[Rfam]
RNA: Fluoride riboswitch aptamer (crcB RNA motif)
RNA sequence: AAUGAAGUAGGGGAUGGCGUCCCCCUGGGGAUAACCCCGAACCGCCUCUUGAUUAAUGAUAGGGGCUGAUGACGCCUACUUCACC
Numbered sequence: 001a002a003u004g005a006a007g008u009a010g011g012g013g014a015u016g017g018c019g020u021c022c023c024c025c026u027g028g029g030g031a032u033a034a035c036c037c038c039g040a041a042c043c044g045c046c047u048c049u050u051g052a053u054u055a056a057u058g059a060u061a062g063g064g065g066c067u068g069a070u071g072a073c074g075c076c077u078a079c080u081u082c083a084c085c
Base pairs, nucleotide, nucleotide: 010025011024012023013022016076017075018074019073020072021071044066045065046064047063048062049061
Dot-bracket structure: .........[[[[..((((((]]]]..................((((((...........))))))....)))))).........